[Rfam]
RNA: HNH endonuclease-associated RNA and ORF (HEARO) RNA
RNA sequence: GUCAGUAACCCACGGCUAAAGGCUCGUGGGCUUGUGGAGCAAUCGACAAGCCGAUACUGACCAGUCUCAGCCACCAACCCUCGGGUUGACGGGGCUACGCUAUCGGUAAGUGUUCACGACCUACCGGCGGGUGCGUUUGCCAGCCUGCUGCUCUAGAACCUGGACAUCAACAAACGGUGCGGGAAGCCGUGCAGGUGUUCUUGGGAUAGUACCGACCGAUAGCUUUGACGAGGCGAACAUCAC
Numbered sequence: 001g002u003c004a005g006u007a008a009c010c011c012a013c014g015g016c017u018a019a020a021g022g023c024u025c026g027u028g029g030g031c032u033u034g035u036g037g038a039g040c041a042a043u044c045g046a047c048a049a050g051c052c053g054a055u056a057c058u059g060a061c062c063a064g065u066c067u068c069a070g071c072c073a074c075c076a077a078c079c080c081u082c083g084g085g086u087u088g089a090c091g092g093g094g095c096u097a098c099g100c101u102a103u104c105g106g107u108a109a110g111u112g113u114u115c116a117c118g119a120c121c122u123a124c125c126g127g128c129g130g131g132u133g134c135g136u137u138u139g140c141c142a143g144c145c146u147g148c149u150g151c152u153c154u155a156g157a158a159c160c161u162g163g164a165c166a167u168c169a170a171c172a173a174a175c176g177g178u179g180c181g182g183g184a185a186g187c188c189g190u191g192c193a194g195g196u197g198u199u200c201u202u203g204g205g206a207u208a209g210u211a212c213c214g215a216c217c218g219a220u221a222g223c224u225u226u227g228a229c230g231a232g233g234c235g236a237a238c239a240u241c242a243c
Base pairs, nucleotide, nucleotide: 001061002060003059004058005057006056007055010030011029012027013026015023016022031050032049033048034047064229065228066227069096070095071094072093099223100222101221102220103219104218105217106216107215121156122155125150126149127148128147129146130145131144132143136236137235140233141232159205160204161203162200163199164198165197166196167195171194174190175189176188177187178185